[Rfam]
RNA: Small nucleolar RNA SNORA14
RNA sequence: AAGCAUCCUUAAUAAACCCCCCAGUUGUCAUAUUGUGGUUCCUGGGACAAGAUAGGAUGCAAGAUCAAUUUUAGAACUAUCCAAAGCUAAGAGCCCUGUCAGUAGCUCUUGGCUAUUUCACCUCUAAGACAGAA
Numbered sequence: 001a002a003g004c005a006u007c008c009u010u011a012a013u014a015a016a017c018c019c020c021c022c023a024g025u026u027g028u029c030a031u032a033u034u035g036u037g038g039u040u041c042c043u044g045g046g047a048c049a050a051g052a053u054a055g056g057a058u059g060c061a062a063g064a065u066c067a068a069u070u071u072u073a074g075a076a077c078u079a080u081c082c083a084a085a086g087c088u089a090a091g092a093g094c095c096c097u098g099u100c101a102g103u104a105g106c107u108c109u110u111g112g113c114u115a116u117u118u119c120a121c122c123u124c125u126a127a128g129a130c131a132g133a134a
Stems, first nucleotide, its partner, number of pairs: 003060004009052002020046005027039002065133002069129007085114007093106002097102001